[Rfam]
RNA sequence: UCGACUCUCGCGGGAGAGACCGGGUUCGCCCCGGAGCCGAAGGCGCAACCGCCCCGGAAACGCUCAGGCAAAAGGACCGCGAAGGCGAA
Number, nucleotide and partner (000 for none) at each position: 001u000002c000003g000004a000005c000006u084007c000008u082009c081010g080011c079012g078013g077014g000015a000016g000017a000018g000019a000020c034021c033022g032023g031024g000025u000026u000027c000028g000029c000030c000031c023032c022033g021034g020035a000036g069037c068038c067039g065040a064041a000042g000043g063044c062045g061046c000047a000048a000049c057050c056051g000052c000053c000054c000055c000056g050057g049058a000059a000060a000061c045062g044063c043064u040065c039066a000067g038068g037069c036070a000071a000072a000073a000074g000075g000076a000077c013078c012079g011080c010081g009082a008083a000084g006085g000086c000087g000088a000089a000

Rfam assigns this 89-nucleotide RNA from Phenylobacterium parvum to the family "Glycine riboswitch aptamer". This family represents the bacterial glycine riboswitch. The organism belongs to Phenylobacterium, within Bacteria. The pairing is the family consensus, mapped onto this sequence.